[Rfam]
RNA sequence: AAAACACACUUUGAAAAAAAGACAAGACACUGUCUGACACAAUUUGAGCUUGCUAUAGCAACAAAGUCUAACCUAUUCCGGUGCUCUCCUCUAUGAGACAAGCAGUUAUAUAGACUUAGACAGU
Numbered sequence: 001a002a003a004a005c006a007c008a009c010u011u012u013g014a015a016a017a018a019a020a021g022a023c024a025a026g027a028c029a030c031u032g033u034c035u036g037a038c039a040c041a042a043u044u045u046g047a048g049c050u051u052g053c054u055a056u057a058g059c060a061a062c063a064a065a066g067u068c069u070a071a072c073c074u075a076u077u078c079c080g081g082u083g084c085u086c087u088c089c090u091c092u093a094u095g096a097g098a099c100a101a102g103c104a105g106u107u108a109u110a111u112a113g114a115c116u117u118a119g120a121c122a123g124u
Base pairs, nucleotide, nucleotide: 009048010047011046012041013040018035020033022031064117065116066115067114068113069112070111074110075109076108079105081103082102085098086097087096088095
Dot-bracket structure: ........(((((....(.(.(........).).)....))....)))...............(((((((...(((..(.((..((((......))))...)).)..)))))))))).......
This 124-nucleotide sequence from Pipistrellus kuhlii belongs to the Rfam family "Small nucleolar RNA SNORA28". Rfam 15.1 lists 922 matches to the family in 535 species. Pairs were carried over by alignment from the consensus structure, which was predicted with RNAfold. The match comes from Rfam's covariance-model search (98 bits). ACA28 is a member of the H/ACA class of snoRNA that guide the sites of modification of uridines to pseudouridines. Rfam links the family to the GO terms nucleolus and RNA processing.